[Rfam]
RNA sequence: GGGGGUGAUCGGUUUCGACGGUGGUCGACGCAUCAGGGGAAGCGGGUCGAGGAUGCAGGGUUAUCUCGUAAACGCUCCUUGCACAACAAUAGGUGCCAAUUCCAACCGCACCGACUUCGCCCUCGCCGCCUGAGCGAGCCUCGAAGUCUGUCAGCCUGAGCUAGUUUCCGACUCAGUGCCUGGCAUCAGCUAGGAAACUUGCUGCGCAGUCAUGUUGGGGGACUGCGCGGGACUCUUUCUCAACUGGGCCUGUCAGGGGACGCGUGCGUGCGAGCCCUGGGGCCGAGAAAAGCCGAAGCGCACUGCACCCGGAGAAGCCCUGGUUUCUCGUCAUCGGACGCGGGUUCAAUUCCCGCCACCUCCACCA
Numbered sequence: 001g002g003g004g005g006u007g008a009u010c011g012g013u014u015u016c017g018a019c020g021g022u023g024g025u026c027g028a029c030g031c032a033u034c035a036g037g038g039g040a041a042g043c044g045g046g047u048c049g050a051g052g053a054u055g056c057a058g059g060g061u062u063a064u065c066u067c068g069u070a071a072a073c074g075c076u077c078c079u080u081g082c083a084c085a086a087c088a089a090u091a092g093g094u095g096c097c098a099a100u101u102c103c104a105a106c107c108g109c110a111c112c113g114a115c116u117u118c119g120c121c122c123u124c125g126c127c128g129c130c131u132g133a134g135c136g137a138g139c140c141u142c143g144a145a146g147u148c149u150g151u152c153a154g155c156c157u158g159a160g161c162u163a164g165u166u167u168c169c170g171a172c173u174c175a176g177u178g179c180c181u182g183g184c185a186u187c188a189g190c191u192a193g194g195a196a197a198c199u200u201g202c203u204g205c206g207c208a209g210u211c212a213u214g215u216u217g218g219g220g221g222a223c224u225g226c227g228c229g230g231g232a233c234u235c236u237u238u239c240u241c242a243a244c245u246g247g248g249c250c251u252g253u254c255a256g257g258g259g260a261c262g263c264g265u266g267c268g269u270g271c272g273a274g275c276c277c278u279g280g281g282g283c284c285g286a287g288a289a290a291a292g293c294c295g296a297a298g299c300g301c302a303c304u305g306c307a308c309c310c311g312g313a314g315a316a317g318c319c320c321u322g323g324u325u326u327c328u329c330g331u332c333a334u335c336g337g338a339c340g341c342g343g344g345u346u347c348a349a350u351u352c353c354c355g356c357c358a359c360c361u362c363c364a365c366c367a
Stems, first nucleotide, its partner, number of pairs: 001363007019336007027328001030326001032324007043311005048068005054083007121146001123144003128139002149185006156176002159173002164198006202230009214244005247284005254279003261272002264303004269296001340356005
RNA: transfer-messenger RNA